[Rfam]
This 75-nucleotide RNA sequence from Oryzias latipes belongs to the Rfam family "Small nucleolar RNA SNORD2".
RNA sequence: GAGUGAAAUGAUGCUUAACCAUCUUUCGGGACUUACCCAACAUCUGGGGAUAUCAUUUUUUAUUACUGAUCACUC
Numbered sequence: 001g002a003g004u005g006a007a008a009u010g011a012u013g014c015u016u017a018a019c020c021a022u023c024u025u026u027c028g029g030g031a032c033u034u035a036c037c038c039a040a041c042a043u044c045u046g047g048g049g050a051u052a053u054c055a056u057u058u059u060u061u062a063u064u065a066c067u068g069a070u071c072a073c074u075c
Base pairs, nucleotide, nucleotide: 001075002074003073004072005071006070
Pairs were carried over by alignment from the consensus structure, which was predicted with WAR. On this family, see Zhou et al., Gene 2004: "Identification of a novel box C/D snoRNA from mouse nucleolar cDNA library". Rfam links the family to the GO terms nucleolus and RNA processing.